[Rfam]
RNA sequence: ACUCAACACGAUUCAAUUAUGAAGGAUGAGUCUUAACUACUAAAGCAAGCCAUCUAGAAUGGAUCCUUGAACAGUUAGUUAGUCCUAUAAGUAACCAUAUUUGGAGUUU
Number, nucleotide and partner (000 for none) at each position: 001a000002c000003u000004c000005a000006a000007c000008a000009c000010g000011a000012u000013u000014c000015a000016a000017u000018u000019a000020u000021g000022a000023a086024g085025g084026a083027u082028g000029a000030g000031u000032c000033u000034u077035a076036a075037c074038u073039a000040c000041u000042a000043a068044a067045g066046c000047a000048a000049g000050c062051c061052a060053u059054c000055u000056a000057g000058a000059a053060u052061g051062g050063a000064u000065c000066c045067u044068u043069g000070a000071a000072c000073a038074g037075u036076u035077a034078g000079u000080u000081a000082g027083u026084c025085c024086u023087a000088u000089a000090a000091g000092u000093a000094a000095c000096c000097a000098u000099a000100u000101u000102u000103g000104g000105a000106g000107u000108u000109u000

Background
A member of the RNA family "6S-Flavo RNA" from Polaribacter atrinae, 109 nucleotides long. The base pairs follow the family's consensus structure, which is taken from published work. It scores 94 bits against the family's covariance model.